[Rfam]
Nucleotides: 123
Base pairs, nucleotide, nucleotide: 011113014109015108016107017106018105019104023100024099025098026097027096028095029094030093031092032091033090
Number, partner (000 for none) and nucleotide at each position: 001000c002000u003000u004000a005000c006000a007000g008000a009000g010000u011113u012000u013000c014109u015108u016107g017106g018105c019104a020000u021000u022000c023100u024099g025098u026097c027096c028095a029094c030093c031092u032091c033090c034000a035000c036000u037000u038000c039000c040000a041000c042000u043000u044000u045000c046000a047000g048000u049000u050000c051000c052000a053000u054000g055000g056000a057000u058000c059000u060000c061000u062000c063000u064000c065000u066000c067000u068000u069000u070000u071000u072000g073000g074000c075000c076000c077000u078000a079000u080000c081000u082000a083000c084000g085000u086000a087000c088000u089000c090033g091032g092031a093030g094029g095028u096027g097026g098025a099024c100023a101000u102000a103000c104019u105018g106017c107016c108015a109014a110000u111000a112000g113011a114000g115000c116000u117000g118000u119000g120000u121000u122000g123000g
About this RNA:
The family of this 123-nucleotide RNA sequence from Glycine max is "MIR394 microRNA precursor family". The family has 19 seed sequences and 724 matches in Rfam 15.1. Pairs were carried over by alignment from the consensus structure, which was predicted with WAR. Gene Ontology terms of the family: RISC complex and miRNA-mediated post-transcriptional gene silencing.